Shown here is a 376-nucleotide RNA from Lachancea thermotolerans, a member of the family "Small nucleolar RNA snR37".
[Rfam]
RNA sequence: AUCAUCAGUAGUGGUUAAUACUAUCUCAAGAUAAUAUUAAUUACAAUUUUUUAUAGAAACCGAAUGUUUUGAUCGUCUGUGUAUUAAAGAGCGAGGUUUGUGGCUUUCGUCUUCGGGCAAAAGUUGGGGCCUUGCUUAAGUUGAUACUGGUACUUGACGGUUAAUUCAAGCAAUAACCCAUAGCUGAAUGGGCUUUGACCACUCCCAAACAGGGUGGCCACAAAGUCCAUUUCGUUUCCGGUUUCUUAGAUUAUCUUCUGCUAUGAGGGAGCCCGGGCCUCUAGAGGCCUGGGAGUGCAUGCUAUCCAGAGGAGCGUGUAAUGCGCUCUGAGAGUUUGGGUUUACCCGUUGUGCCCUCCUUCAUGCCAGUACAUUC
Numbered sequence: 001a002u003c004a005u006c007a008g009u010a011g012u013g014g015u016u017a018a019u020a021c022u023a024u025c026u027c028a029a030g031a032u033a034a035u036a037u038u039a040a041u042u043a044c045a046a047u048u049u050u051u052u053a054u055a056g057a058a059a060c061c062g063a064a065u066g067u068u069u070u071g072a073u074c075g076u077c078u079g080u081g082u083a084u085u086a087a088a089g090a091g092c093g094a095g096g097u098u099u100g101u102g103g104c105u106u107u108c109g110u111c112u113u114c115g116g117g118c119a120a121a122a123g124u125u126g127g128g129g130c131c132u133u134g135c136u137u138a139a140g141u142u143g144a145u146a147c148u149g150g151u152a153c154u155u156g157a158c159g160g161u162u163a164a165u166u167c168a169a170g171c172a173a174u175a176a177c178c179c180a181u182a183g184c185u186g187a188a189u190g191g192g193c194u195u196u197g198a199c200c201a202c203u204c205c206c207a208a209a210c211a212g213g214g215u216g217g218c219c220a221c222a223a224a225g226u227c228c229a230u231u232u233c234g235u236u237u238c239c240g241g242u243u244u245c246u247u248a249g250a251u252u253a254u255c256u257u258c259u260g261c262u263a264u265g266a267g268g269g270a271g272c273c274c275g276g277g278c279c280u281c282u283a284g285a286g287g288c289c290u291g292g293g294a295g296u297g298c299a300u301g302c303u304a305u306c307c308a309g310a311g312g313a314g315c316g317u318g319u320a321a322u323g324c325g326c327u328c329u330g331a332g333a334g335u336u337u338g339g340g341u342u343u344a345c346c347c348g349u350u351g352u353g354c355c356c357u358c359c360u361u362c363a364u365g366c367c368a369g370u371a372c373a374u375u376c
Base pairs, nucleotide, nucleotide: 008049010047012045013044014041015040016039017038018037019036020035022033023032024031025030055246056245057244058243059242060241061240066167069164070163071162072161073160074159075158076157077156079155081153082152083151084150085149089137090136091135093133094132095131096130097129098128099127101126102125106121107120109118110117111116139148140147141146186232187231188230189229190228191227192226195223196222197221199217200216201215202214203213258369259368260367262365264363265362266361267360268359269358270357271356272293273292274291275290276289277288278287279286280285295355299352300351301350303348305340306339307338308337309336310335311329312328313327314326315325316324317323
Lineage of the source: Eukaryota > Fungi > Ascomycota > Saccharomycetaceae > Lachancea thermotolerans.